The family of this 144-nucleotide sequence from Merluccius polli is "Small nucleolar RNA SNORA79". It is annotated as an H/ACA-box small nucleolar RNA.
RNA sequence: UGACGUCAGUUCCUCCUCCUGCUCUAAGUUCAGCUGUGUGGAUUUUAUGACGUCACAGAAUAAGCUGUGGUCUAUUUCACCCAGGGGAGUUUUGGGCGGCAGCGCUGCCCCGGUAACCUCCUGGUUUUGCUGGACCCCACAAUU
Numbered sequence: 001u002g003a004c005g006u007c008a009g010u011u012c013c014u015c016c017u018c019c020u021g022c023u024c025u026a027a028g029u030u031c032a033g034c035u036g037u038g039u040g041g042a043u044u045u046u047a048u049g050a051c052g053u054c055a056c057a058g059a060a061u062a063a064g065c066u067g068u069g070g071u072c073u074a075u076u077u078c079a080c081c082c083a084g085g086g087g088a089g090u091u092u093u094g095g096g097c098g099g100c101a102g103c104g105c106u107g108c109c110c111c112g113g114u115a116a117c118c119u120c121c122u123g124g125u126u127u128u129g130c131u132g133g134a135c136c137c138c139a140c141a142a143u144u
Base pairs, nucleotide, nucleotide: 001055002054003053004052005051006050007049008048014042015041016040018038020036021035023033069136070135071134072133073132074131081124082123083122084121085120086119087118090115094110095109096108097107098106

Rfam 15.1 lists 944 matches to the family in 375 species. The match comes from Rfam's covariance-model search (79 bits). Its family is annotated with RNA processing and nucleolus in the Gene Ontology. ACA65 (SNORA79) is a member of the H/ACA class of snoRNAs that guide the sites of modification of uridines to pseudouridines. This snoRNA was identified by computational screening and its expression in mouse experimentally verified by Northern blot and primer extension analysis.